Small nucleolar RNA snoR14: an 88-nucleotide RNA sequence from Lactuca sativa. A search with the family's covariance model found it, with a score of 64 bits. By type it is a C/D-box small nucleolar RNA. The literature on the family includes a 2001 paper in RNA by Brown et al., "Multiple snoRNA gene clusters from Arabidopsis". Pairs were carried over by alignment from the consensus structure. Rfam links the family to the GO terms nucleolus and RNA processing. The family has 7 seed sequences and 668 matches in Rfam 15.1. The source organism's lineage runs through Eukaryota, Magnoliopsida, asterids, Asterales and Lactuca.
RNA sequence: GCGAGAUGAAGAUACAAUUCAUUUGUUCUAUCGACCUACUGACAUUUCGAUUGAUGUUAAACUAUGGAUUCCGACAGGUUCUGAUCGC
Numbered sequence: 001g002c003g004a005g006a007u008g009a010a011g012a013u014a015c016a017a018u019u020c021a022u023u024u025g026u027u028c029u030a031u032c033g034a035c036c037u038a039c040u041g042a043c044a045u046u047u048c049g050a051u052u053g054a055u056g057u058u059a060a061a062c063u064a065u066g067g068a069u070u071c072c073g074a075c076a077g078g079u080u081c082u083g084a085u086c087g088c
Base pairs, nucleotide, nucleotide: 001088002087003086004085